The family of this 147-nucleotide RNA from Salipiger mucosus is "Ruegeria cis2 sRNA". The organism belongs to Salipiger mucosus, within Bacteria.
[Rfam]
RNA sequence: GUUGCGGGGGAAAUAGUUCGAGAAGGCAUAACCGCGCGACUGGUCGAUGGCGUGGAAGAGCGGGUUCCAGUCGAACAUCACCAGCAUGUAGCCGGGCAGCGUGUUGGCCACGAACAUCUUGCCCGAGGCGAUCAUGUUGGCGCGCUG
Numbered sequence: 001g002u003u004g005c006g007g008g009g010g011a012a013a014u015a016g017u018u019c020g021a022g023a024a025g026g027c028a029u030a031a032c033c034g035c036g037c038g039a040c041u042g043g044u045c046g047a048u049g050g051c052g053u054g055g056a057a058g059a060g061c062g063g064g065u066u067c068c069a070g071u072c073g074a075a076c077a078u079c080a081c082c083a084g085c086a087u088g089u090a091g092c093c094g095g096g097c098a099g100c101g102u103g104u105u106g107g108c109c110a111c112g113a114a115c116a117u118c119u120u121g122c123c124c125g126a127g128g129c130g131a132u133c134a135u136g137u138u139g140g141c142g143c144g145c146u147g
Stems, first nucleotide, its partner, number of pairs: 002024002007019003032050003035046002059146004064076004081140008092128002095124002097121003101117002104113003
It is annotated as a small RNA. The family's consensus secondary structure was predicted with RNAfold. Its family is annotated with regulation of gene expression in the Gene Ontology.